[Rfam]
RNA sequence: GGGCUGGCUUUAGCUCAGCGGUUCCUUCGGUGCAUCUCCAGUACUGUAACUGCCCUUUCGAGGGUGGUUCGAGACCCGCGGGCGCUCUCCAGCCCUUUU
Numbered sequence: 001g002g003g004c005u006g007g008c009u010u011u012a013g014c015u016c017a018g019c020g021g022u023u024c025c026u027u028c029g030g031u032g033c034a035u036c037u038c039c040a041g042u043a044c045u046g047u048a049a050c051u052g053c054c055c056u057u058u059c060g061a062g063g064g065u066g067g068u069u070c071g072a073g074a075c076c077c078g079c080g081g082g083c084g085c086u087c088u089c090c091a092g093c094c095c096u097u098u099u
Stems, first nucleotide, its partner, number of pairs: 002094006013083004018079004026073005
Source information: Rfam assigns this 99-nucleotide RNA sequence from Trichechus manatus to the family "Vault RNA". Rfam describes the family as follows. This family of RNAs are found as part of the enigmatic vault ribonucleoprotein complex. The family's consensus secondary structure is taken from published work. Taxonomically the source falls in Trichechus manatus (Eukaryota, Metazoa, Mammalia, Sirenia). It is annotated as a non-coding RNA gene.